[Rfam]
RNA sequence: GGAGGAUGCUCUGGAGAAUCCCGAAAGGGUGCCGAAGGUGUAAGGCUCAUUUAGCCGAAUCUCUCAGGCCAAAGGACAGAGGAAAGCAU
Numbered sequence: 001g002g003a004g005g006a007u008g009c010u011c012u013g014g015a016g017a018a019u020c021c022c023g024a025a026a027g028g029g030u031g032c033c034g035a036a037g038g039u040g041u042a043a044g045g046c047u048c049a050u051u052u053a054g055c056c057g058a059a060u061c062u063c064u065c066a067g068g069c070c071a072a073a074g075g076a077c078a079g080a081g082g083a084a085a086g087c088a089u
Stems, first nucleotide, its partner, number of pairs: 007083001009081005020029003031069003034065002038063001040061001044056002
Shown here is an 89-nucleotide RNA sequence from Firmicutes bacterium CAG:240, a member of the family "Glycine riboswitch aptamer". The match comes from Rfam's covariance-model search (58 bits). Rfam links the family to the GO term glycine biosynthetic process.